[Rfam]
RNA sequence: AAAAUGAAGGGGUUGUAGGGGAAGUAUUUCCCCUGCCGACUUAAGAAGGGUGCUCAGCAGCGAUAGCUGCGUCGAAGGGAAA
Dot-bracket structure: ..............((((((((......))))))))....................(((((....)))))............